[Rfam]
RNA sequence: UAAGGCCGUUAACCCUGCGUUAAGCUUUACGGAUCAUUAUCAUAUACAUCCAGUUCUUCUGGAUUCGGACUGAGUGACAAGAUGUCAUUCUGUUUGAUGCCUCCCUGUUAAACUUCUGAGAGCCGCGUCGCGGCUCUUUUUUU
Numbered sequence: 001u002a003a004g005g006c007c008g009u010u011a012a013c014c015c016u017g018c019g020u021u022a023a024g025c026u027u028u029a030c031g032g033a034u035c036a037u038u039a040u041c042a043u044a045u046a047c048a049u050c051c052a053g054u055u056c057u058u059c060u061g062g063a064u065u066c067g068g069a070c071u072g073a074g075u076g077a078c079a080a081g082a083u084g085u086c087a088u089u090c091u092g093u094u095u096g097a098u099g100c101c102u103c104c105c106u107g108u109u110a111a112a113c114u115u116c117u118g119a120g121a122g123c124c125g126c127g128u129c130g131c132g133g134c135u136c137u138u139u140u141u142u143u
Stems, first nucleotide, its partner, number of pairs: 001044002004041001005015001017037001021036001023034001025032002048064004072090006096109004118138009
Rfam assigns this 143-nucleotide RNA sequence from Hoeflea prorocentri to the family "Alphaproteobacterial sRNA BjrC1505".
Lineage of the source: Bacteria > Pseudomonadati > Alphaproteobacteria > Hyphomicrobiales > Hoeflea.